The record is a 76-nucleotide RNA from Thelazia callipaeda, which matches "mir-87 microRNA precursor family" in Rfam. The literature on the family includes a 2003 paper in Dev Biol by Sempere et al., "Temporal regulation of microRNA expression in Drosophila melanogaster mediated by hormonal signals and broad-Complex gene activity". Pairs were carried over by alignment from the consensus structure, which was predicted with RNAalifold. Its family is annotated with RISC complex and miRNA-mediated post-transcriptional gene silencing in the Gene Ontology. Taxonomically the source falls in Thelazia (Eukaryota, Chromadorea, Rhabditida, Thelazioidea).

RNA sequence: UGCGCGGCGCCUGGGACUUCGACUCAACCUCAGUAUCUUUGAGCGUAGGUGAGCAAAGUUUCAGGUGUUCGAGCGC
Numbered sequence: 001u002g003c004g005c006g007g008c009g010c011c012u013g014g015g016a017c018u019u020c021g022a023c024u025c026a027a028c029c030u031c032a033g034u035a036u037c038u039u040u041g042a043g044c045g046u047a048g049g050u051g052a053g054c055a056a057a058g059u060u061u062c063a064g065g066u067g068u069u070c071g072a073g074c075g076c
Stems, first nucleotide, its partner, number of pairs: 002074002005071003008067007016059004023053004028049003